[Rfam]
RNA sequence: UUUGGGUGCUAAGUAGUGGUGCCGCAGGUAACGUUAAAGCUUACCUUCGUCCUACUGCUUAACACAAGAU
Numbered sequence: 001u002u003u004g005g006g007u008g009c010u011a012a013g014u015a016g017u018g019g020u021g022c023c024g025c026a027g028g029u030a031a032c033g034u035u036a037a038a039g040c041u042u043a044c045c046u047u048c049g050u051c052c053u054a055c056u057g058c059u060u061a062a063c064a065c066a067a068g069a070u
Base pairs, nucleotide, nucleotide: 002069003068006065007064010061011060012059013058014057015056016055017054018053019052024048026046027045028044029043030042

The family of this 70-nucleotide sequence from Auanema sp. JU1783 is "mir-252 microRNA precursor family". Pairs were carried over by alignment from the consensus structure, which was predicted with RNAalifold. The family is grouped with related families in Rfam's "mir-252 microRNA precursor family". It scores 52 bits against the family's covariance model. For this family Rfam cites "Direct sequencing and expression analysis of a large number of miRNAs in Aedes aegypti and a multi-species survey of novel mosquito miRNAs" (Li et al., BMC Genomics, 2009). Lineage of the source: Eukaryota > Bilateria > Rhabditomorpha > Rhabditoidea > Auanema.